[Rfam]
RNA sequence: AUUGGAUCUAUGAUGUUUUCUAAAAACUGCGUUAUCUAUCUGUAAAUUCCUAAUGGAAUUGAAGAUAUUUAUAAUGUGCUGAGAUCCAAG
Numbered sequence: 001a002u003u004g005g006a007u008c009u010a011u012g013a014u015g016u017u018u019u020c021u022a023a024a025a026a027c028u029g030c031g032u033u034a035u036c037u038a039u040c041u042g043u044a045a046a047u048u049c050c051u052a053a054u055g056g057a058a059u060u061g062a063a064g065a066u067a068u069u070u071a072u073a074a075u076g077u078g079c080u081g082a083g084a085u086c087c088a089a090g
Base pairs, nucleotide, nucleotide: 002089003088004087005086006085007084
Small nucleolar RNA snoR27: a 90-nucleotide RNA from Morella rubra. Clan: snR68 clan. Taxonomically the source falls in Morella (Eukaryota, Streptophyta, Embryophyta, Mesangiospermae). A search with the family's covariance model found it, with a score of 77 bits. The family has 6 seed sequences and 649 matches in Rfam 15.1. The literature on the family includes a 2001 paper in RNA by Brown et al., "Multiple snoRNA gene clusters from Arabidopsis".